RNA sequence: UUCUUAUCAAGAGCGGGGGAGGAAUCUGGUCCUUUGAUCCCGCGGCAACCAUUUACAAGGUAGAGCUUGUAAAACGGUGCCCAAUCCAGCAGACAAUAACAGUCUGAAAGAUAAGAA
Numbered sequence: 001u002u003c004u005u006a007u008c009a010a011g012a013g014c015g016g017g018g019g020a021g022g023a024a025u026c027u028g029g030u031c032c033u034u035u036g037a038u039c040c041c042g043c044g045g046c047a048a049c050c051a052u053u054u055a056c057a058a059g060g061u062a063g064a065g066c067u068u069g070u071a072a073a074a075c076g077g078u079g080c081c082c083a084a085u086c087c088a089g090c091a092g093a094c095a096a097u098a099a100c101a102g103u104c105u106g107a108a109a110g111a112u113a114a115g116a117a
Stems, first nucleotide, its partner, number of pairs: 001117008013043005021032003026089004044081004049077002052073008085109001090106005

This 117-nucleotide RNA from Paraliobacillus quinghaiensis belongs to the Rfam family "SAM riboswitch aptamer (S box leader)". The SAM riboswitch is found upstream of a number of genes which code for proteins involved in methionine or cysteine biosynthesis in Gram-positive bacteria. The SAM riboswitch acts at the level of transcription termination control. The predicted structure consists of a complex stem-loop region followed by a single stem loop terminator region. An alternative and mutually exclusive form involves bases in the 3' segment of helix 1 with those in the 5' region of helix 5 to form a structure termed the anti-terminator form. Lineage of the source: Bacteria > Bacillota > Caryophanales > Bacillaceae > Paraliobacillus.